[Rfam]
This 175-nucleotide sequence from Microbulbifer sp. THAF38 belongs to the Rfam family "Group II catalytic intron D1-D4-3". Rfam links the family to the GO term Group II intron splicing.
RNA sequence: AAUAUCGUGAGGUAUUGGCUGGAGGAAGCCCAACGCAAAUUCACGGGAUGAUGAACAAGAACUGGAUAUGAGGUGUGACGUAGGCGGAGCCAGUGGGCACGUGACCAUAAAGCUCUCCAUCCACAACUGGCCUGCGUUUUAUAAAUCCAGCAUCUACGUGAAGAAAGUUAAAUGU
Numbered sequence: 001a002a003u004a005u006c007g008u009g010a011g012g013u014a015u016u017g018g019c020u021g022g023a024g025g026a027a028g029c030c031c032a033a034c035g036c037a038a039a040u041u042c043a044c045g046g047g048a049u050g051a052u053g054a055a056c057a058a059g060a061a062c063u064g065g066a067u068a069u070g071a072g073g074u075g076u077g078a079c080g081u082a083g084g085c086g087g088a089g090c091c092a093g094u095g096g097g098c099a100c101g102u103g104a105c106c107a108u109a110a111a112g113c114u115c116u117c118c119a120u121c122c123a124c125a126a127c128u129g130g131c132c133u134g135c136g137u138u139u140u141a142u143a144a145a146u147c148c149a150g151c152a153u154c155u156a157c158g159u160g161a162a163g164a165a166a167g168u169u170a171a172a173u174g175u
Stems, first nucleotide, its partner, number of pairs: 001016006028175002035168002040162006046155005062150006073142003077138007087115004093108004
Overview:
A search with the family's covariance model found it, with a score of 122 bits. The organism belongs to Microbulbifer, within Bacteria.